[Rfam]
RNA sequence: AACGUCCGUCGCAGAUCUCUCCCUUCCCCUGGAGUGAUCCCGGAACGCACCAGGCUUCUCCCCGAGCCCGCGUUCCCCGAGCCCCGCCGGCCCCCCCUGCCUGCGGGGCUUUUUA
Numbered sequence: 001a002a003c004g005u006c007c008g009u010c011g012c013a014g015a016u017c018u019c020u021c022c023c024u025u026c027c028c029c030u031g032g033a034g035u036g037a038u039c040c041c042g043g044a045a046c047g048c049a050c051c052a053g054g055c056u057u058c059u060c061c062c063c064g065a066g067c068c069c070g071c072g073u074u075c076c077c078c079g080a081g082c083c084c085c086g087c088c089g090g091c092c093c094c095c096c097c098u099g100c101c102u103g104c105g106g107g108g109c110u111u112u113u114u115a
Base pairs, nucleotide, nucleotide: 004012006011014039015038016037017036019034020033021032022031042076043075044074045073046072047071048070053068054067055066056065080110081109082108083107084106085105086104087103089101090100091099
This 115-nucleotide sequence from Luteimonas yindakuii belongs to the Rfam family "Xanthomonadaceae sRNA sX13". A search with the family's covariance model found it, with a score of 70 bits. A reference for the family is Schmidtke et al. (2011), "Genome-wide transcriptome analysis of the plant pathogen Xanthomonas identifies sRNAs with putative virulence functions", Nucleic Acids Res.